[Rfam]
RNA: Actinobacteria sRNA Ms_AS-4
RNA sequence: UUUGGCGUCGGUGAAGCGGUGGGGGUCGUCGCCGAAUUCGCCGAGGAUCCGGGCGCUGAGGACCACGCCGAGGCCGGGUUGG
Dot-bracket structure: .......((((((....(((..((.......))..)))))))))..........(((..((.(........).)).)))...
Numbered sequence: 001u002u003u004g005g006c007g008u009c010g011g012u013g014a015a016g017c018g019g020u021g022g023g024g025g026u027c028g029u030c031g032c033c034g035a036a037u038u039c040g041c042c043g044a045g046g047a048u049c050c051g052g053g054c055g056c057u058g059a060g061g062a063c064c065a066c067g068c069c070g071a072g073g074c075c076g077g078g079u080u081g082g
Stems, first nucleotide, its partner, number of pairs: 008044006018038003023033002055079003060075002063072001